[Rfam]
RNA sequence: AGUUGUGGUGGUUCUUUUCCAGCACAUUUGUUAAGUUUUCAAAUGGGCUUGACUCUGCCACAUACAUUAUGUAGGAGCUGGCAAAGACCUGAAGACAGAGUGGUCUCUCUUGAGCUUUUCCUGCACCUGAGAUUGGCUCCCACAUGU
Number, nucleotide and partner (000 for none) at each position: 001a000002g000003u000004u000005g061006u060007g059008g058009u057010g056011g055012u000013u000014c000015u000016u000017u000018u000019c000020c000021a049022g048023c047024a000025c045026a044027u043028u042029u041030g040031u000032u000033a000034a000035g000036u000037u000038u000039u000040c030041a029042a028043a027044u026045g025046g000047g023048c022049u021050u000051g000052a000053c000054u000055c011056u010057g009058c008059c007060a006061c005062a000063u000064a000065c000066a000067u000068u000069a000070u000071g000072u000073a000074g140075g139076a138077g137078c136079u135080g089081g088082c000083a000084a000085a000086g000087a000088c081089c080090u000091g000092a000093a000094g000095a000096c000097a000098g000099a000100g000101u000102g000103g000104u000105c000106u132107c131108u130109c129110u000111u000112g000113a000114g000115c000116u000117u000118u000119u000120c000121c000122u000123g000124c000125a000126c000127c000128u000129g109130a108131g107132a106133u000134u000135g079136g078137c077138u076139c075140c074141c000142a000143c000144a000145u000146g000147u000
Background
This 147-nucleotide sequence from Castor canadensis belongs to the Rfam family "Small nucleolar RNA SNORA12". Rfam's curators write: U108 belongs to the H/ACA family of snoRNAs. The sequence is predicted to guide the pseudouridylation of the U372 residue in the 28S rRNA subunit. However it has not been reported as a pseudouridylation site. For this family Rfam cites "A novel experimental approach for systematic identification of box H/ACA snoRNAs from eukaryotes" (Gu et al., Nucleic Acids Res, 2005). The source organism's lineage runs through Eukaryota, Eumetazoa, Tetrapoda, Castorimorpha and Castor. Rfam links the family to the GO terms RNA processing and nucleolus. The family's RNA type in Rfam is H/ACA-box small nucleolar RNA.